[Rfam]
The family of this 161-nucleotide RNA sequence from Mauremys mutica is "U1 spliceosomal RNA". It is annotated as a spliceosomal small nuclear RNA. NCBI's taxonomy places the organism under Eukaryota, Euteleostomi, Amniota, Testudines, Mauremys.

RNA sequence: AUACUUACCGGGCAGGGGAGAUACCAUGAUCAUGAAGGUGGUUUUCCCAGGGUGAGGCUUAUCCAUUGCACUGCGGGUGUGCUGACCCCUGCGCUUUUCCCAAAUGCGGGAAACUCGACUGCAUAAUUUGUGGUAGUGGGGAACAAGGAGGAAUGACCCAA
Numbered sequence: 001a002u003a004c005u006u007a008c009c010g011g012g013c014a015g016g017g018g019a020g021a022u023a024c025c026a027u028g029a030u031c032a033u034g035a036a037g038g039u040g041g042u043u044u045u046c047c048c049a050g051g052g053u054g055a056g057g058c059u060u061a062u063c064c065a066u067u068g069c070a071c072u073g074c075g076g077g078u079g080u081g082c083u084g085a086c087c088c089c090u091g092c093g094c095u096u097u098u099c100c101c102a103a104a105u106g107c108g109g110g111a112a113a114c115u116c117g118a119c120u121g122c123a124u125a126a127u128u129u130g131u132g133g134u135a136g137u138g139g140g141g142a143a144c145a146a147g148g149a150g151g152a153a154u155g156a157c158c159c160a161a
Stems, first nucleotide, its partner, number of pairs: 012122004016048006023042005049090004054086001056083003060079005092117002095113003099109002137161001139159003